[Rfam]
RNA: TPP riboswitch aptamer (THI element)
RNA sequence: UAACACCACAAGGGGGGCCUUUUGGCUGAGAGUGGACUGCUGUGUCCUAACCCUUCGAACCUGUAAGUUUAUACUUGCGUAGGGAUGUGGAUGGAAAAGUAU
Numbered sequence: 001u002a003a004c005a006c007c008a009c010a011a012g013g014g015g016g017g018c019c020u021u022u023u024g025g026c027u028g029a030g031a032g033u034g035g036a037c038u039g040c041u042g043u044g045u046c047c048u049a050a051c052c053c054u055u056c057g058a059a060c061c062u063g064u065a066a067g068u069u070u071a072u073a074c075u076u077g078c079g080u081a082g083g084g085a086u087g088u089g090g091a092u093g094g095a096a097a098a099g100u101a102u
Stems, first nucleotide, its partner, number of pairs: 006090005011054004016048001017026003034047004060083004064077004